[Rfam]
RNA sequence: GGGUGCGACGGCUGGCCGUUGCAGGUUCGGGCUGGUCGGGCCGCCAGCC
Number, nucleotide and partner (000 for none) at each position: 001g000002g000003g000004u000005g022006c021007g020008a019009c018010g017011g016012c000013u000014g000015g000016c011017c010018g009019u008020u007021g006022c005023a000024g000025g000026u000027u000028c000029g000030g049031g048032c047033u046034g045035g044036u043037c000038g000039g000040g000041c000042c000043g036044c035045c034046a033047g032048c031049c030
Source information
Shown here is a 49-nucleotide sequence, a member of the family "nhaA-I RNA". Rfam's curators write: Acidobacteria, Alphaproteobacteria, Betaproteobacteria and Gammaproteobacteria, Verrucomicrobia, cand. division NC10.